This 131-nucleotide RNA sequence from Sarcophilus harrisii belongs to the Rfam family "Small nucleolar RNA SNORA77". A search with the family's covariance model found it, with a score of 58 bits. Rfam's curators write: ACA63 (SNORA77) is a member of the H/ACA class of snoRNAs that guide the sites of modification of uridines to pseudouridines. This snoRNA was identified by computational screening and its expression in mouse experimentally verified by Northern blot and primer extension analysis. ACA63 is proposed to guide the pseudouridylation of 18S rRNA U814. NCBI's taxonomy places the organism under Eukaryota, Bilateria, Vertebrata, Dipnotetrapodomorpha, Sarcophilus. Rfam 15.1 lists 843 matches to the family in 607 species.
RNA sequence: GCAGACUCACUCUGUACAUGACUGCCUUCCUCAGUCUUGCUGCUUUUCCGGUCUGCUAGAGAAGUGACCCCCGGGGUUGCAAACACCUUGCUCUGGUGAAGGGCCGUUGCAACUGCCUGGGAGACAUCCCG
Numbered sequence: 001g002c003a004g005a006c007u008c009a010c011u012c013u014g015u016a017c018a019u020g021a022c023u024g025c026c027u028u029c030c031u032c033a034g035u036c037u038u039g040c041u042g043c044u045u046u047u048c049c050g051g052u053c054u055g056c057u058a059g060a061g062a063a064g065u066g067a068c069c070c071c072c073g074g075g076g077u078u079g080c081a082a083a084c085a086c087c088u089u090g091c092u093c094u095g096g097u098g099a100a101g102g103g104c105c106g107u108u109g110c111a112a113c114u115g116c117c118u119g120g121g122a123g124a125c126a127u128c129c130c131g
Base pairs, nucleotide, nucleotide: 001056002055003054004053005052006051014043015042016041017039018038020036022034023033024032069121070120071119073117074116076113077112078111079110080109081108084106087103088102